[Rfam]
RNA sequence: ACUAAGCACUGUUGUAAGUCGCUCUGGAUAAGAGCGUAUGCUAAAUGUUGUAAA
Numbered sequence: 001a002c003u004a005a006g007c008a009c010u011g012u013u014g015u016a017a018g019u020c021g022c023u024c025u026g027g028a029u030a031a032g033a034g035c036g037u038a039u040g041c042u043a044a045a046u047g048u049u050g051u052a053a054a
Stems, first nucleotide, its partner, number of pairs: 013043001014041003020036006

Rfam assigns this 54-nucleotide RNA sequence from Erpetoichthys calabaricus to the family "UnaL2 LINE 3' element". The match comes from Rfam's covariance-model search (58 bits). The family's consensus secondary structure is taken from published work. From the family's description: The eel long interspersed element (LINE) UnaL2 and its partner short interspersed element (SINE) share a conserved 3' tail containing a stem-loop that is critical for their retrotransposition. The family's RNA type in Rfam is cis-regulatory element.